[Rfam]
RNA sequence: GGUCAUGAGCGCCAGCGACAAGCCCCGGCUCGCUGGCCGGCAACCCUCCUCCGCGGUGGGGUGCCCCGGGUGAAGACCAGGCGCACGGCACCGGUUGCCGUGCGCAAGCGCGGGCG
Numbered sequence: 001g002g003u004c005a006u007g008a009g010c011g012c013c014a015g016c017g018a019c020a021a022g023c024c025c026c027g028g029c030u031c032g033c034u035g036g037c038c039g040g041c042a043a044c045c046c047u048c049c050u051c052c053g054c055g056g057u058g059g060g061g062u063g064c065c066c067c068g069g070g071u072g073a074a075g076a077c078c079a080g081g082c083g084c085a086c087g088g089c090a091c092c093g094g095u096u097g098c099c100g101u102g103c104g105c106a107a108g109c110g111c112g113g114g115c116g
Stems, first nucleotide, its partner, number of pairs: 001078004009038001011037006021030002039065003044061003048056002081105010